Record summary:
The family of this 73-nucleotide RNA from Euglena gracilis is "tRNA". Its Rfam clan is "tRNA clan". The family's consensus secondary structure is taken from published work. NCBI's taxonomy places the organism under Eukaryota, Discoba, Euglenozoa, Spirocuta, Euglena. It is one of the family's seed sequences.
RNA sequence: GCGCUUUUAGUUCAAUUGGUAGAACGUAGGUCUCCAAAACCUGAUGUAGUAGGUUCGAAUCCUACAGAGCGCG
Dot-bracket structure: (((((((..((((........)))).(((((.......))))).....(((((.......)))))))))))).
Numbered sequence: 001g002c003g004c005u006u007u008u009a010g011u012u013c014a015a016u017u018g019g020u021a022g023a024a025c026g027u028a029g030g031u032c033u034c035c036a037a038a039a040c041c042u043g044a045u046g047u048a049g050u051a052g053g054u055u056c057g058a059a060u061c062c063u064a065c066a067g068a069g070c071g072c073g
Stems, first nucleotide, its partner, number of pairs: 001072007010025004027043005049065005